The family of this 85-nucleotide RNA sequence from Nelumbo nucifera is "mir-156 microRNA precursor family". A search with the family's covariance model found it, with a score of 84 bits. Rfam links the family to the GO terms RISC complex and miRNA-mediated post-transcriptional gene silencing. The base pairs follow the family's consensus structure, which was predicted with PFOLD. About the family: This family represents the plant microRNA (miRNA) precursor mir-156. On this family, see Ambros, Cell 2001: "microRNAs: tiny regulators with great potential".
RNA sequence: GUGACAGAAGAGAGUGAGCACACAUGGUUUUUCUUGCAUGGAGGCUCAUGCUCGAAGCUCUGCGUGCUCGCUCUCUAUCUGUCAC
Numbered sequence: 001g002u003g004a005c006a007g008a009a010g011a012g013a014g015u016g017a018g019c020a021c022a023c024a025u026g027g028u029u030u031u032u033c034u035u036g037c038a039u040g041g042a043g044g045c046u047c048a049u050g051c052u053c054g055a056a057g058c059u060c061u062g063c064g065u066g067c068u069c070g071c072u073c074u075c076u077a078u079c080u081g082u083c084a085c
Stems, first nucleotide, its partner, number of pairs: 001085008010075012023062002